[Rfam]
RNA: mir-981 microRNA precursor family
Organism: Dolichomitus sp. PSUC_FEM 10030005
RNA sequence: CUGCAGACGUCCGGGUUUCGUGACAGGCGAGCCGUUAGUUUUACACUGGUUCGUUGUCGACGAAACCUGCACGAUCUGUGA
Numbered sequence: 001c002u003g004c005a006g007a008c009g010u011c012c013g014g015g016u017u018u019c020g021u022g023a024c025a026g027g028c029g030a031g032c033c034g035u036u037a038g039u040u041u042u043a044c045a046c047u048g049g050u051u052c053g054u055u056g057u058c059g060a061c062g063a064a065a066c067c068u069g070c071a072c073g074a075u076c077u078g079u080g081a
Base pairs, nucleotide, nucleotide: 002080003079004078005077006076012069013068014067015066016065017064018063019062020061029052030051031050032049033048